Ribosomal protein L20 leader: a 130-nucleotide RNA sequence from Candidatus Epulonipiscioides gigas. A reference for the family is Zengel and Lindahl (1994), "Diverse mechanisms for regulating ribosomal protein synthesis in Escherichia coli", Prog Nucleic Acid Res Mol Biol. The family's consensus secondary structure was predicted with CMfinder. The match comes from Rfam's covariance-model search (62 bits). It is annotated as a cis-regulatory leader. This family is a putative r-protein leader autoregulatory structure found in B. subtilis and other low-GC Gram-positive bacteria. It is located in the 5' untranslated regions of mRNAs encoding initiation factor 3 followed by ribosomal proteins L35 and L20 (infC-rpmI-rplT). A Rho-independent transcription terminator structure that is probably involved in regulation is included at the 3' end. Lineage of the source: Bacteria > Bacillati > Clostridia > Lachnospiraceae > Candidatus Epulonipiscioides.
RNA sequence: CGGACUAAGCAGAAAAUUGUUUUCUCACCUUACAACAAAUGUGUUAGUAAGGUCAUACUAAGCCCUAAUAAAAAGGUAUUUUGUAUGUUUAAGAGCGGAUAGAUUUUUCUGUCCGCUUUUUUAUUAGUCC
Numbered sequence: 001c002g003g004a005c006u007a008a009g010c011a012g013a014a015a016a017u018u019g020u021u022u023u024c025u026c027a028c029c030u031u032a033c034a035a036c037a038a039a040u041g042u043g044u045u046a047g048u049a050a051g052g053u054c055a056u057a058c059u060a061a062g063c064c065c066u067a068a069u070a071a072a073a074a075g076g077u078a079u080u081u082u083g084u085a086u087g088u089u090u091a092a093g094a095g096c097g098g099a100u101a102g103a104u105u106u107u108u109c110u111g112u113c114c115g116c117u118u119u120u121u122u123a124u125u126a127g128u129c130c
Base pairs, nucleotide, nucleotide: 011025012024013023014022015021016020027053028052029051032048033047035044036043094117095116096115097114098113099112100111101110102109103108